[Rfam]
RNA: Small nucleolar RNA ACA64
Organism: Trogon melanurus
RNA sequence: GCGGUCUGAAAAUCACUUGGAGCCUUCUGUGGCCCCCGGUGAGAUAACUGCGCCCACAGCAUAGGGAACACUAAGCUUAUUGCCCGCUGUAAAGUGUGGGGAGUAAAACCCAUGUUCCUAUAACC
Numbered sequence: 001g002c003g004g005u006c007u008g009a010a011a012a013u014c015a016c017u018u019g020g021a022g023c024c025u026u027c028u029g030u031g032g033c034c035c036c037c038g039g040u041g042a043g044a045u046a047a048c049u050g051c052g053c054c055c056a057c058a059g060c061a062u063a064g065g066g067a068a069c070a071c072u073a074a075g076c077u078u079a080u081u082g083c084c085c086g087c088u089g090u091a092a093a094g095u096g097u098g099g100g101g102a103g104u105a106a107a108a109c110c111c112a113u114g115u116u117c118c119u120a121u122a123a124c125c
Stems, first nucleotide, its partner, number of pairs: 006050001008048001010045001013042004022033003065118001067116004077106005085098003